[Rfam]
Source information
Shown here is a 147-nucleotide sequence from Salinihabitans flavidus, a member of the family "L2-Alphaproteobacteria ribosomal protein leader". The base pairs follow the family's consensus structure, which is taken from published work.
RNA sequence: GGAGACCCUCGGGGCUCUUUAUCGCCGGGCACCUCGCCAUAUGUCCCGACAGGGGCGCAGGAAAGGGGCCUUUAUUCGUGGCAGGCGGUCGCCUGCCCACAAACACAGCGGACCGCAAAGGUUCGCACUGCUAACGGAAGACAGAAA
Numbered sequence: 001g002g003a004g005a006c007c008c009u010c011g012g013g014g015c016u017c018u019u020u021a022u023c024g025c026c027g028g029g030c031a032c033c034u035c036g037c038c039a040u041a042u043g044u045c046c047c048g049a050c051a052g053g054g055g056c057g058c059a060g061g062a063a064a065g066g067g068g069c070c071u072u073u074a075u076u077c078g079u080g081g082c083a084g085g086c087g088g089u090c091g092c093c094u095g096c097c098c099a100c101a102a103a104c105a106c107a108g109c110g111g112a113c114c115g116c117a118a119a120g121g122u123u124c125g126c127a128c129u130g131c132u133a134a135c136g137g138a139a140g141a142c143a144g145a146a147a
Base pairs, nucleotide, nucleotide: 001018002017003016004015006014007013008012027124028123029122030121